[Rfam]
RNA sequence: AGAAGACCUCCCGUAAAUCAAGCAUGAAAGGGCGAUCGCAGGUUGCAAAAAAGCGGAGUGACGUAUGGACACGUCACCCCGC
Numbered sequence: 001a002g003a004a005g006a007c008c009u010c011c012c013g014u015a016a017a018u019c020a021a022g023c024a025u026g027a028a029a030g031g032g033c034g035a036u037c038g039c040a041g042g043u044u045g046c047a048a049a050a051a052a053g054c055g056g057a058g059u060g061a062c063g064u065a066u067g068g069a070c071a072c073g074u075c076a077c078c079c080c081g082c
Base pairs, nucleotide, nucleotide: 005044007042008041009040022033023032025030053082054081055080056079059076060075061074062073063072064071